[Rfam]
RNA: Small nucleolar RNA SNORD16
Organism: Oryzias sinensis
RNA sequence: UGCAAUGAUGGUGUAAUUUGCGUCUGACUCUGUGACCAGUGACAGAAUGCCUACUGUCUUAUACUGGUGCAGAUGGCUGGUGAUCAUUGAGUCUGAGCA
Numbered sequence: 001u002g003c004a005a006u007g008a009u010g011g012u013g014u015a016a017u018u019u020g021c022g023u024c025u026g027a028c029u030c031u032g033u034g035a036c037c038a039g040u041g042a043c044a045g046a047a048u049g050c051c052u053a054c055u056g057u058c059u060u061a062u063a064c065u066g067g068u069g070c071a072g073a074u075g076g077c078u079g080g081u082g083a084u085c086a087u088u089g090a091g092u093c094u095g096a097g098c099a
Base pairs, nucleotide, nucleotide: 001099002098003097021082022081023080024079030072031071032070033069034068039064040063041058042057043056044055045054